[Rfam]
RNA sequence: UAAUUAUCAGGAGCAGUGUUUCCCAUAAUUU
Numbered sequence: 001u002a003a004u005u006a007u008c009a010g011g012a013g014c015a016g017u018g019u020u021u022c023c024c025a026u027a028a029u030u031u
Stems, first nucleotide, its partner, number of pairs: 002030006010023004014018001
Shown here is a 31-nucleotide sequence from Propithecus coquereli, a member of the family "Iron response element II". A reference for the family is Kohler et al. (1999), "Molecular cloning of mouse glycolate oxidase. High evolutionary conservation and presence of an iron-responsive element-like sequence in the mRNA", J Biol Chem. From the family's description: IRE, TFRC, SLC40A1, SDHB, SLC11A2, CDC42BPA, ACO2, ALAS2_H.SAPIENS, CDC14A, EPAS1, ALAS2, qoxD, Hao1, NDUFS1, transferrin, Aconitate. The match comes from Rfam's covariance-model search (33 bits). Taxonomically the source falls in Propithecus (Eukaryota, Opisthokonta, Metazoa, Primates).